[Rfam]
RNA sequence: AUGCAAAUGAUGUAAAACAAAAAUUGUGCUGAGUGCAGUGAUGCAGUCAAAGGAACCACUGAUGCAU
Number, nucleotide and partner (000 for none) at each position: 001a067002u066003g065004c064005a063006a000007a000008u000009g000010a000011u000012g000013u000014a000015a000016a000017a000018c000019a000020a000021a000022a000023a000024u000025u000026g000027u000028g000029c000030u000031g000032a000033g000034u000035g000036c000037a000038g000039u000040g000041a000042u000043g000044c000045a000046g000047u000048c000049a000050a000051a000052g000053g000054a000055a000056c000057c000058a000059c000060u000061g000062a000063u005064g004065c003066a002067u001
Background
Rfam assigns this 67-nucleotide RNA sequence from Geotrypetes seraphini to the family "Small nucleolar RNA SNORD42". From the family's description: snoRNA U42 is found in intron 3 of the ribosomal protein L23a (RPL23a) gene in humans and is also present in mice. On this family, see Galardi et al., Mol Cell Biol 2002: "Purified box C/D snoRNPs are able to reproduce site-specific 2'-O-methylation of target RNA in vitro". Pairs were carried over by alignment from the consensus structure, which was predicted with PFOLD.